[Rfam]
RNA sequence: CGUUACUGCAUUUUGCAGUGCGUUUCCUCCCUAGACUUCAAAGGCCGCGCCCUUCCGGGCUGCGGCCUUUUUUUCUGCCCGC
Numbered sequence: 001c002g003u004u005a006c007u008g009c010a011u012u013u014u015g016c017a018g019u020g021c022g023u024u025u026c027c028u029c030c031c032u033a034g035a036c037u038u039c040a041a042a043g044g045c046c047g048c049g050c051c052c053u054u055c056c057g058g059g060c061u062g063c064g065g066c067c068u069u070u071u072u073u074u075c076u077g078c079c080c081g082c
Base pairs, nucleotide, nucleotide: 008021009020010019011018043067044066045065046064047063048062049060050059051058

Record summary: Makes More Granules Regulator RNA (mmgR): an 82-nucleotide sequence from Azospirillum griseum. SuhB later renamed mmgR (makes more granules regulator) was a putative non-coding RNA found multiple times in the Agrobacterium tumefaciens genome and related alpha-proteobacteria. Other non-coding RNAs uncovered in the same analysis include: speF, ybhL, metA, and serC.Several studies inSinorhizobium meliloti showed that suhB element is indeed a non-coding RNA:firstly it was detected on Northern blot and called Sm8RNA, secondly in an RNAseq study referred to as SmelC689.The mutant phenotype's (strain lacking the small RNA) cytoplasm contains higher content of polyhydroxybutyrate (PBH)storage granules than wild type strain. The sRNA is required to limit the PBH intracellular accumulation when the nitrogen-fixing Sinorhizobium meliloti is under condition of surplus carbon in relation to nitrogen. It has been renamed to mmgR. Further study confirmed that mmgR fine-tunes the regulation of PBH storage.Northern blot confirmed the expression of the sRNA in other rhizobia species. Rfam 15.1 lists 1,791 matches to the family in 918 species. The source organism's lineage runs through Bacteria, Pseudomonadati, Pseudomonadota, Rhodospirillales and Azospirillum. For this family Rfam cites "Prediction of Sinorhizobium meliloti sRNA genes and experimental detection in strain 2011" (Valverde et al., BMC Genomics, 2008). Its Rfam clan is "suhB sRNA clan".